[Rfam]
RNA sequence: GCAAGUUCAAAACCAUAGCAGAAGUGUUCACUGCAUGGCCUGUCAGAGUCCAGUGAAUCUGUGAAUUCUGCU
Numbered sequence: 001g002c003a004a005g006u007u008c009a010a011a012a013c014c015a016u017a018g019c020a021g022a023a024g025u026g027u028u029c030a031c032u033g034c035a036u037g038g039c040c041u042g043u044c045a046g047a048g049u050c051c052a053g054u055g056a057a058u059c060u061g062u063g064a065a066u067u068c069u070g071c072u
Base pairs, nucleotide, nucleotide: 013038014037017072018071019070020069021068022067023066024036025035026034044061045060046059047058049056050055
A member of the RNA family "Mammalian CPEB3 ribozyme" from Alligator mississippiensis, 72 nucleotides long. NCBI's taxonomy places the organism under Eukaryota, Opisthokonta, Eumetazoa, Sarcopterygii, Alligator. Rfam's curators write: The mammalian CPEB3 ribozyme is a self cleaving RNA located in the second intron of the CPEB3 gene which belongs to a family of genes regulating messenger RNA polyadenylation. Pairs were carried over by alignment from the consensus structure, which is taken from published work. A search with the family's covariance model found it, with a score of 46 bits. Rfam links the family to the GO term RNA nuclease activity.